A member of the RNA family "Human immunodeficiency virus type 1 dimerisation initiation site" from Catagonus wagneri, 40 nucleotides long. About the family: This cis element is composed of four hairpins called SL1 to SL4 (SL is for Stem Loop). This element is involved in encapsidation of the retroviral RNA an essential step in replication. It is found in HIV, SIV and CIV. It has been shown that SL1 may provide a secondary binding site for Rev. SL1, SL2, SL3 and SL4 have been independently expressed and structurally characterised. Its family is annotated with viral RNA genome packaging in the Gene Ontology. Pairs were carried over by alignment from the consensus structure, which is taken from published work. It scores 37 bits against the family's covariance model.
[Rfam]
Nucleotides: 040
Base pairs, nucleotide, nucleotide: 004038005037006036007035009031010030011029012028013027014026015025
Number, partner (000 for none) and nucleotide at each position: 001000g002000g003000a004038c005037c006036c007035g008000g009031c010030u011029g012028g013027u014026g015025g016000a017000u018000g019000u020000g021000c022000a023000c024000a025015c026014u027013g028012c029011c030010a031009g032000a033000g034000a035007c036006g037005g038004g039000u040000g